Shown here is a 139-nucleotide sequence from [Clostridium] aminophilum, a member of the family "Molybdenum/Tungsten riboswitch aptamer (Moco RNA motif)". The match comes from Rfam's covariance-model search (76 bits).
[Rfam]
RNA sequence: CUAUAUAAAAAACUCCGAGCUUUUAAGCCUAAAAAGAGUCCUUUCUUCAUGGUUUUUAAGACGCGAAUUUCGAUCCGCCGGGGUAUGGAUGGAAACAGACAUGCCUUCCUUAUUGAAAAGGAGUCACAAUGAAAAAAAU
Numbered sequence: 001c002u003a004u005a006u007a008a009a010a011a012a013c014u015c016c017g018a019g020c021u022u023u024u025a026a027g028c029c030u031a032a033a034a035a036g037a038g039u040c041c042u043u044u045c046u047u048c049a050u051g052g053u054u055u056u057u058a059a060g061a062c063g064c065g066a067a068u069u070u071c072g073a074u075c076c077g078c079c080g081g082g083g084u085a086u087g088g089a090u091g092g093a094a095a096c097a098g099a100c101a102u103g104c105c106u107u108c109c110u111u112a113u114u115g116a117a118a119a120g121g122a123g124u125c126a127c128a129a130u131g132a133a134a135a136a137a138a139u
Stems, first nucleotide, its partner, number of pairs: 004132001012124005020060003025055005034047005063078003067074001081106007090097002107116002

Annotation: On this family, see Regulski et al., Mol Microbiol 2008: "in molybdenum cofactor and tungsten cofactor metabolism".